Shown here is a 511-nucleotide sequence from Planotetraspora thailandica, a member of the family "Saccharopolyspora sRNA 350". Its family is annotated with regulation of secondary metabolite biosynthetic process in the Gene Ontology. For this family Rfam cites "Prediction and characterization of small non-coding RNAs related to secondary metabolites in Saccharopolyspora erythraea" (Liu et al., PLoS One, 2013).

[Rfam]
RNA sequence: UUCACGGUGAAGUCCCACGCCUGCGACUCAUCGGUGAGGAGCUGGUCGCCGAAGUGGUCGCCGUCGGCGAGGACCUCCAGCGUCGUCUCGUGCCCGUACGCGCCCGCGCCGAGCUUGUCGACCUUGCCGUGCGCGAUCAGGACGACCUGGUCGAGCGGGGCGCCGGCGGAGACGAUGACCUCGUCCGGCGCGUACUCCCGCUGCGUGAACCGGCGGGCCAGGGCCGACAGCACGUCGGUGUCGUCGAAGCGCCGCAGCGCCGCGAUCUCGCACAGCUCGGCGGGGAUGACCCUGACCUCUGCUCCGGUGGAGACGAACGUGAUGCGCCCGUCGCCCACGCCGUAGCUGAGCCGGCGGUUGACCCGGUAGGCGCCGCCGAUCACCUGCACCCACGGGAGGAUCCGCAGCAGGUGCCGCGAGGUGAUCUCCUGCAUCUGCGGCGCCGACUUGGUGGUCGUCGCCAGGUUCCGCGCAGCGGCGGUGCCCAGGCUGAGCUGCGGCUGCUCGUCCG
Numbered sequence: 001u002u003c004a005c006g007g008u009g010a011a012g013u014c015c016c017a018c019g020c021c022u023g024c025g026a027c028u029c030a031u032c033g034g035u036g037a038g039g040a041g042c043u044g045g046u047c048g049c050c051g052a053a054g055u056g057g058u059c060g061c062c063g064u065c066g067g068c069g070a071g072g073a074c075c076u077c078c079a080g081c082g083u084c085g086u087c088u089c090g091u092g093c094c095c096g097u098a099c100g101c102g103c104c105c106g107c108g109c110c111g112a113g114c115u116u117g118u119c120g121a122c123c124u125u126g127c128c129g130u131g132c133g134c135g136a137u138c139a140g141g142a143c144g145a146c147c148u149g150g151u152c153g154a155g156c157g158g159g160g161c162g163c164c165g166g167c168g169g170a171g172a173c174g175a176u177g178a179c180c181u182c183g184u185c186c187g188g189c190g191c192g193u194a195c196u197c198c199c200g201c202u203g204c205g206u207g208a209a210c211c212g213g214c215g216g217g218c219c220a221g222g223g224c225c226g227a228c229a230g231c232a233c234g235u236c237g238g239u240g241u242c243g244u245c246g247a248a249g250c251g252c253c254g255c256a257g258c259g260c261c262g263c264g265a266u267c268u269c270g271c272a273c274a275g276c277u278c279g280g281c282g283g284g285g286a287u288g289a290c291c292c293u294g295a296c297c298u299c300u301g302c303u304c305c306g307g308u309g310g311a312g313a314c315g316a317a318c319g320u321g322a323u324g325c326g327c328c329c330g331u332c333g334c335c336c337a338c339g340c341c342g343u344a345g346c347u348g349a350g351c352c353g354g355c356g357g358u359u360g361a362c363c364c365g366g367u368a369g370g371c372g373c374c375g376c377c378g379a380u381c382a383c384c385u386g387c388a389c390c391c392a393c394g395g396g397a398g399g400a401u402c403c404g405c406a407g408c409a410g411g412u413g414c415c416g417c418g419a420g421g422u423g424a425u426c427u428c429c430u431g432c433a434u435c436u437g438c439g440g441c442g443c444c445g446a447c448u449u450g451g452u453g454g455u456c457g458u459c460g461c462c463a464g465g466u467u468c469c470g471c472g473c474a475g476c477g478g479c480g481g482u483g484c485c486c487a488g489g490c491u492g493a494g495c496u497g498c499g500g501c502u503g504c505u506c507g508u509c510c511g
Stems, first nucleotide, its partner, number of pairs: 006390004011385002019325002022321004028316002035313001040308001042306001045305001048302002051299002054233002058229001061226001063224002065111004077102001080099001082097002085094001118221001120219001122217002127212001129210002131206005140197001144195001150191001155189002158186004163177001166173001234296004240290006250282005256277003261270002329342002332339001352378006362370002391431002394428004400422002403418003407415001437476002440473001442471002445468002447465006477510002480505003484499001486497003